[Rfam]
RNA: terC RNA
RNA sequence: ACCCAGAUCCGGGCCCCUCUGACGUGAGCCUGCUGGCGCUUACGUGAUGUCGGAUCCUCACC
Numbered sequence: 001a002c003c004c005a006g007a008u009c010c011g012g013g014c015c016c017c018u019c020u021g022a023c024g025u026g027a028g029c030c031u032g033c034u035g036g037c038g039c040u041u042a043c044g045u046g047a048u049g050u051c052g053g054a055u056c057c058u059c060a061c062c
Stems, first nucleotide, its partner, number of pairs: 006056007022045008
Dot-bracket structure: .....(((((((.........((((((((........))))))))....)))))))......